[Rfam]
RNA: Small nucleolar RNA SNORA57
Organism: Pavo cristatus
RNA sequence: CCUCCGGUUCUUGGCAGGCCCGGCGCGCCGUGCCCGGCUCUGUAUGGGCGGAGGUAGAGCAGCGACCGGCGCGGCGUCUUCGGUACCCGCGGCGCUCCGCGGGGUUCUGCCCUCCCGAGCCGGGACAAGC
Numbered sequence: 001c002c003u004c005c006g007g008u009u010c011u012u013g014g015c016a017g018g019c020c021c022g023g024c025g026c027g028c029c030g031u032g033c034c035c036g037g038c039u040c041u042g043u044a045u046g047g048g049c050g051g052a053g054g055u056a057g058a059g060c061a062g063c064g065a066c067c068g069g070c071g072c073g074g075c076g077u078c079u080u081c082g083g084u085a086c087c088c089g090c091g092g093c094g095c096u097c098c099g100c101g102g103g104g105u106u107c108u109g110c111c112c113u114c115c116c117g118a119g120c121c122g123g124g125a126c127a128a129g130c
Stems, first nucleotide, its partner, number of pairs: 001054005015042004020037001022035002067122004072117001086103007